[Rfam]
RNA sequence: UCGACAUUGAUACAUUUGAUAUUUGGGUCAAAAUAUCAAAUGUAUCAAUCGUCGACCAGCAUAAGUAGACCCAAAUAUCAAAUGUAUCAAUCGUCGA
Numbered sequence: 001u002c003g004a005c006a007u008u009g010a011u012a013c014a015u016u017u018g019a020u021a022u023u024u025g026g027g028u029c030a031a032a033a034u035a036u037c038a039a040a041u042g043u044a045u046c047a048a049u050c051g052u053c054g055a056c057c058a059g060c061a062u063a064a065g066u067a068g069a070c071c072c073a074a075a076u077a078u079c080a081a082a083u084g085u086a087u088c089a090a091u092c093g094u095c096g097a
Base pairs, nucleotide, nucleotide: 008089009088010087011086012085013084014083015082016081017080018079019078020077021076022075026071027070028069029068
RNA: mir-50 microRNA precursor family